Description
A member of the RNA family "serC leader", 50 nucleotides long. On this family, see Corbino et al., Genome Biol 2005: "Evidence for a second class of S-adenosylmethionine riboswitches and other regulatory RNA motifs in alpha-proteobacteria". Rfam describes the family as follows. This family is a putative regulatory RNA structure that is found upstream of the serC-serA operon in some alpha-proteobacteria. The final stem of the structure overlaps the ribosome binding site of the serC reading frame.
[Rfam]
RNA sequence: GAGUAUGACACCUCUCCCCAACGAGAGGUCUUUCUAUAAGGAAACUAGAC
Numbered sequence: 001g002a003g004u005a006u007g008a009c010a011c012c013u014c015u016c017c018c019c020a021a022c023g024a025g026a027g028g029u030c031u032u033u034c035u036a037u038a039a040g041g042a043a044a045c046u047a048g049a050c
Base pairs, nucleotide, nucleotide: 011028012027013026014025015024016023031044032043033042034041035040

By type it is a cis-regulatory leader.